[Rfam]
RNA sequence: GAAGCACGCCAGACCGCCGCUGGUGCAAUCUGGGAAACCAGGCACUGGAGGAACGUCCGGACUGCACAGGACAGCGUAGCAGCUAACGGCUGCCCACCGUGAGGUGAGGAUCAGAGCAACAGAGACGAGUCAGGUCGUUUUCAGCCACCAAGGGUGUUCUAUGGGGGGGCCAGCGCAAGCUGGCGCCGGCUGGCGCAAGCCAGACGCUCAGGCGCAAGCCUGAAGCCCCAUAGCCACCCAAGGCGCGGAACGCGACUUGGGUGAAACGGGCAAUCUCUACGCGCAGCAAUACCAAGUAGGCCAACGUUGAUGUGGUUCCGCAGAGUUGGCGGGUAGGUAGCAUCGAGCCGUGGUGGCGACACCCGGCCCAGAGUAAUGGCGGUCACAUUGCGGGCAACCGCAGUGCACAGAAUCCGGCUUAUCGGCGUGCUUCACAC
Numbered sequence: 001g002a003a004g005c006a007c008g009c010c011a012g013a014c015c016g017c018c019g020c021u022g023g024u025g026c027a028a029u030c031u032g033g034g035a036a037a038c039c040a041g042g043c044a045c046u047g048g049a050g051g052a053a054c055g056u057c058c059g060g061a062c063u064g065c066a067c068a069g070g071a072c073a074g075c076g077u078a079g080c081a082g083c084u085a086a087c088g089g090c091u092g093c094c095c096a097c098c099g100u101g102a103g104g105u106g107a108g109g110a111u112c113a114g115a116g117c118a119a120c121a122g123a124g125a126c127g128a129g130u131c132a133g134g135u136c137g138u139u140u141u142c143a144g145c146c147a148c149c150a151a152g153g154g155u156g157u158u159c160u161a162u163g164g165g166g167g168g169g170c171c172a173g174c175g176c177a178a179g180c181u182g183g184c185g186c187c188g189g190c191u192g193g194c195g196c197a198a199g200c201c202a203g204a205c206g207c208u209c210a211g212g213c214g215c216a217a218g219c220c221u222g223a224a225g226c227c228c229c230a231u232a233g234c235c236a237c238c239c240a241a242g243g244c245g246c247g248g249a250a251c252g253c254g255a256c257u258u259g260g261g262u263g264a265a266a267c268g269g270g271c272a273a274u275c276u277c278u279a280c281g282c283g284c285a286g287c288a289a290u291a292c293c294a295a296g297u298a299g300g301c302c303a304a305c306g307u308u309g310a311u312g313u314g315g316u317u318c319c320g321c322a323g324a325g326u327u328g329g330c331g332g333g334u335a336g337g338u339a340g341c342a343u344c345g346a347g348c349c350g351u352g353g354u355g356g357c358g359a360c361a362c363c364c365g366g367c368c369c370a371g372a373g374u375a376a377u378g379g380c381g382g383u384c385a386c387a388u389u390g391c392g393g394g395c396a397a398c399c400g401c402a403g404u405g406c407a408c409a410g411a412a413u414c415c416g417g418c419u420u421a422u423c424g425g426c427g428u429g430c431u432u433c434a435c436a437c
Base pairs, nucleotide, nucleotide: 001433002432003431004430005429006428007427008426009425010424011422012384013383014382015381016380017379018378020048021047022046023045024044025043026042053420055418057417058416059415060414061413062286063285064284065283069317070316074282075281076280077279078278079093080092081091082090083089094108095106096105097104098103109277110276114275115274116271117270131153133149134148135147137145138144139143235263236262237261238260239259240258241257242256290339291338292337293336300330301329302328303327304326305325311322312321313320314319347367348366349365350364352363353362354361355360